[Rfam]
This 112-nucleotide RNA sequence from Handroanthus impetiginosus belongs to the Rfam family "mir-395 microRNA precursor family".

RNA sequence: GUGUUCCCUAGAGUUCCCCUAACCGCUUCACGGCGGCGCUUUUGGGCAUUUGAAUGAGAAAAUACUGCCAAAUAUAGCCUCCUGAAGUGUUUGGGGGAACUCUGGGGUUCGC
Numbered sequence: 001g002u003g004u005u006c007c008c009u010a011g012a013g014u015u016c017c018c019c020u021a022a023c024c025g026c027u028u029c030a031c032g033g034c035g036g037c038g039c040u041u042u043u044g045g046g047c048a049u050u051u052g053a054a055u056g057a058g059a060a061a062a063u064a065c066u067g068c069c070a071a072a073u074a075u076a077g078c079c080u081c082c083u084g085a086a087g088u089g090u091u092u093g094g095g096g097g098a099a100c101u102c103u104g105g106g107g108u109u110c111g112c
Base pairs, nucleotide, nucleotide: 006107007106008105009104011102012101013100014099015098016097017096018095019094020093021092022091024089025088026087027086028085029084030083032081033080035078
From the family's description: mir-395 was identified in both Arabidopsis thaliana and Oryza sativa computationally and was later experimentally verified. mir-395 is thought to target mRNAs coding for ATP sulphurylases. The mature sequence is excised from the 3' arm of the hairpin. Its family is annotated with miRNA-mediated post-transcriptional gene silencing and RISC complex in the Gene Ontology.